[Rfam]
RNA sequence: GGCCGCCAAGGAGAUGGCAUUCUCCUCGAACCGCCGCAAGGCUGAUGAUGCCUACCUGUAC
Dot-bracket structure: .........[[[[..((((((]]]].......(((....)))....)))))).........
This 61-nucleotide sequence from Fulvimonas soli belongs to the Rfam family "Fluoride riboswitch aptamer (crcB RNA motif)". The family's consensus secondary structure is taken from published work. NCBI's taxonomy places the organism under Bacteria, Pseudomonadati, Pseudomonadota, Rhodanobacteraceae, Fulvimonas. Its family is annotated with positive regulation of gene expression and response to fluoride in the Gene Ontology.